The family of this 156-nucleotide RNA sequence from Acerihabitans arboris is "STAXI RNA". Lineage of the source: Bacteria > Pseudomonadota > Gammaproteobacteria > Pectobacteriaceae > Acerihabitans. The family's RNA type in Rfam is small RNA.
RNA sequence: CGUUGCUUCAGCAACAUGCCAAUGUCCCCGUGGUCUGAGAGGGACGCUUUCGGGUGAUCACAUGCCAAUGCCACCAUAACCUGAGAGGUGGCGCCUUCGGGCGGUAACCUCGUUUAACCUUUGAGAACGAGGAUCGCAAUCGCGAUAAAGGUCUAC
Dot-bracket structure: .(((((....)))))........[[[[[.((((((.....]]]]](((....)))))))))........(((((....[[[......)))))(((....)))]]]...(((((...[[[[[.....))))).(((((....))))).]]]]]....